[Rfam]
RNA sequence: AGCAAGGGGCCGAUAAACCAAAAAAGAGUGAGCCGGCGGCGCAAAAUGUAGCGCGGCCGGUGAAA
Numbered sequence: 001a002g003c004a005a006g007g008g009g010c011c012g013a014u015a016a017a018c019c020a021a022a023a024a025a026g027a028g029u030g031a032g033c034c035g036g037c038g039g040c041g042c043a044a045a046a047u048g049u050a051g052c053g054c055g056g057c058c059g060g061u062g063a064a065a
Stems, first nucleotide, its partner, number of pairs: 032061006039054002043049001

The record is a 65-nucleotide RNA sequence from Citrobacter sp. JGM124, which matches "DnaX ribosomal frameshifting element" in Rfam.
By type it is a frameshift element.
Pairs were carried over by alignment from the consensus structure, which is taken from published work.
From the family's description: This family represents a ribosomal frameshifting element found in the mRNA of the dnaX gene in E. coli.